The family of this 92-nucleotide sequence from Sulfuriferula sp. AH1 is "Selenocysteine transfer RNA". The literature on the family includes a 1997 paper in Nucleic Acids Res by Lowe and Eddy, "tRNAscan-SE: a program for improved detection of transfer RNA genes in genomic sequence". The match comes from Rfam's covariance-model search (74 bits).
RNA sequence: GGAAGGGAUUCGCUCCCCGGUGGGGCGGCCGGACUUCAAAUUCGGUUAAGCACGCCAGCGUGCUUGGGUGGGUUCGACUCCCACUCCCUUCC
Numbered sequence: 001g002g003a004a005g006g007g008a009u010u011c012g013c014u015c016c017c018c019g020g021u022g023g024g025g026c027g028g029c030c031g032g033a034c035u036u037c038a039a040a041u042u043c044g045g046u047u048a049a050g051c052a053c054g055c056c057a058g059c060g061u062g063c064u065u066g067g068g069u070g071g072g073u074u075c076g077a078c079u080c081c082c083a084c085u086c087c088c089u090u091c092c
Stems, first nucleotide, its partner, number of pairs: 001092008011027003015024003028046006048065005069083004

The family's consensus secondary structure is taken from published work. Its family is annotated with triplet codon-amino acid adaptor activity in the Gene Ontology. Rfam 15.1 lists 4,211 matches to the family in 3,344 species.